[Rfam]
RNA sequence: UAGUAACACUUAUAGGAACUGUCUGGUGUGGUCACGAAAGUGGCAAUUUAAUCAUAGCUUAAUUAAAUCCUGCUAUGGGGUA
Numbered sequence: 001u002a003g004u005a006a007c008a009c010u011u012a013u014a015g016g017a018a019c020u021g022u023c024u025g026g027u028g029u030g031g032u033c034a035c036g037a038a039a040g041u042g043g044c045a046a047u048u049u050a051a052u053c054a055u056a057g058c059u060u061a062a063u064u065a066a067a068u069c070c071u072g073c074u075a076u077g078g079g080g081u082a
Stems, first nucleotide, its partner, number of pairs: 031044005053077005